[Rfam]
RNA sequence: UCCGGGUGAUGCCCGCACAAGGAGCCACGACGGGGUGCAAAGUCACCUAAUUCGCUCCUGGGAAGGUCUGAGGCCGGGAUCAUGAGUCGCUCUAAAAGGGUGGUCACAGAAAUGUGACGGGCUCCACGAGAAACUCCGCCUGGUUCCCUUGCUGUGAGCCCCAACGGGUUGUGAGCUCGGGGGACGCCGCGCGCCAGGGUGGUGCGCGGGGGCGCUGGGACAGGUGCCCGAUCGGCUGUCUGAGUCUAAUAUGCGGGACGGGGCAUUCGUUAUCGGCGUGGGCCUCCGUAACUGAAUUCAGACUACUCCACCUGGA
Numbered sequence: 001u002c003c004g005g006g007u008g009a010u011g012c013c014c015g016c017a018c019a020a021g022g023a024g025c026c027a028c029g030a031c032g033g034g035g036u037g038c039a040a041a042g043u044c045a046c047c048u049a050a051u052u053c054g055c056u057c058c059u060g061g062g063a064a065g066g067u068c069u070g071a072g073g074c075c076g077g078g079a080u081c082a083u084g085a086g087u088c089g090c091u092c093u094a095a096a097a098g099g100g101u102g103g104u105c106a107c108a109g110a111a112a113u114g115u116g117a118c119g120g121g122c123u124c125c126a127c128g129a130g131a132a133a134c135u136c137c138g139c140c141u142g143g144u145u146c147c148c149u150u151g152c153u154g155u156g157a158g159c160c161c162c163a164a165c166g167g168g169u170u171g172u173g174a175g176c177u178c179g180g181g182g183g184a185c186g187c188c189g190c191g192c193g194c195c196a197g198g199g200u201g202g203u204g205c206g207c208g209g210g211g212g213c214g215c216u217g218g219g220a221c222a223g224g225u226g227c228c229c230g231a232u233c234g235g236c237u238g239u240c241u242g243a244g245u246c247u248a249a250u251a252u253g254c255g256g257g258a259c260g261g262g263g264c265a266u267u268c269g270u271u272a273u274c275g276g277c278g279u280g281g282g283c284c285u286c287c288g289u290a291a292c293u294g295a296a297u298u299c300a301g302a303c304u305a306c307u308c309c310a311c312c313u314g315g316a
Base pairs, nucleotide, nucleotide: 001316002315003314006311007310008309012256013255020059021058022057023056024055033048034047035046036045037044038042068301069300070299071298072297078233079232080231081230088102089101090100091099092098103118104117105116106115107114108113119229120228121227122226124224125223137214138213139212140211141210258289259288260287261286262284263283264282
This 316-nucleotide RNA from Varroa destructor belongs to the Rfam family "Nuclear RNase P". Gene Ontology terms of the family: ribonuclease P complex, tRNA processing and ribonuclease P activity. The match comes from Rfam's covariance-model search (122 bits). Rfam's curators write: Ribonuclease P (RNase P) is a ubiquitous endoribonuclease, found in archaea, bacteria and eukarya as well as chloroplasts and mitochondria. The literature on the family includes a 2002 paper in Annu Rev Biochem by Xiao et al., "Eukaryotic Ribonuclease P: A Plurality of Ribonucleoprotein Enzymes". The source organism's lineage runs through Eukaryota, Metazoa, Acari, Monogynaspida and Varroa.